[Rfam]
RNA: SAM riboswitch aptamer (S box leader)
RNA sequence: UUCUUAUCAAGAGAAGUGGAGGGACUGGCCCGAUGAUACUUCAGCAACCGGCUAUUUGUAAGUCAAGGUGCUAAAUCCAGCGGAUGAAAGAUCCGAAAGAUGAGGA
Numbered sequence: 001u002u003c004u005u006a007u008c009a010a011g012a013g014a015a016g017u018g019g020a021g022g023g024a025c026u027g028g029c030c031c032g033a034u035g036a037u038a039c040u041u042c043a044g045c046a047a048c049c050g051g052c053u054a055u056u057u058g059u060a061a062g063u064c065a066a067g068g069u070g071c072u073a074a075a076u077c078c079a080g081c082g083g084a085u086g087a088a089a090g091a092u093c094c095g096a097a098a099g100a101u102g103a104g105g106a
Base pairs, nucleotide, nucleotide: 001106002105003104004103005102006101007100008099013042014041015040016039017038021031022030023029025080026079027078028077043072044071045070046069048068049067050064051063052062053061076098081095082094083093084092085091